[Rfam]
RNA sequence: GCCAGGCUGCUGUAAAAGCACAAGCCAAUGUGCUUUCCUCUGAAGAGGGGUUAGCAGCGAGCAGCGCCAUGCCGCAGGGCAGGGGUGCUGCAGAAAAGGCCGGUAAAUAUGCCGGUAAA
Dot-bracket structure: ..................................(((((......)))))..........((((((((.(((......)))..)))))))).......(((((........)))))...
Rfam assigns this 119-nucleotide sequence to the family "Mahella-1 RNA". It is one of the family's seed sequences.